[Rfam]
Rfam assigns this 140-nucleotide sequence from Astyanax mexicanus to the family "Small nucleolar RNA SNORA79". Rfam links the family to the GO terms RNA processing and nucleolus. About the family: ACA65 (SNORA79) is a member of the H/ACA class of snoRNAs that guide the sites of modification of uridines to pseudouridines. This snoRNA was identified by computational screening and its expression in mouse experimentally verified by Northern blot and primer extension analysis. For this family Rfam cites "A computational screen for mammalian pseudouridylation guide H/ACA RNAs" (Schattner et al., RNA, 2006). The family's RNA type in Rfam is H/ACA-box small nucleolar RNA. The family's consensus secondary structure was predicted with RNAalifold.
RNA sequence: UGACGACCGUUCCUCCUGCUGCUGCGAGGUCUAGCAUGACAGGGUUUUAGGUCGUCACAGAAUAAAGAGACCCUCUACACCAGUGUGUAAGCCCUCAAGGCUGUCUCUGUGCACUCUGGAUACAGUGGGACUCGACACAA
Number, nucleotide and partner (000 for none) at each position: 001u057002g056003a055004c054005g053006a052007c051008c050009g000010u000011u000012c000013c000014u044015c043016c042017u041018g040019c000020u036021g035022c034023u033024g000025c000026g000027a000028g000029g000030u000031c000032u000033a023034g022035c021036a020037u000038g000039a000040c018041a017042g016043g015044g014045u000046u000047u000048u000049a000050g008051g007052u006053c005054g004055u003056c002057a001058c000059a000060g000061a000062a000063u000064a000065a000066a000067g000068a132069g131070a000071c129072c128073c127074u000075c000076u000077a000078c000079a000080c119081c118082a117083g116084u000085g114086u113087g112088u111089a110090a106091g105092c000093c103094c000095u000096c000097a000098a000099g000100g000101c000102u000103g093104u000105c091106u090107c000108u000109g000110u089111g088112c087113a086114c085115u000116c083117u082118g081119g080120a000121u000122a000123c000124a000125g000126u000127g073128g072129g071130a000131c069132u068133c000134g000135a000136c000137a000138c000139a000140a000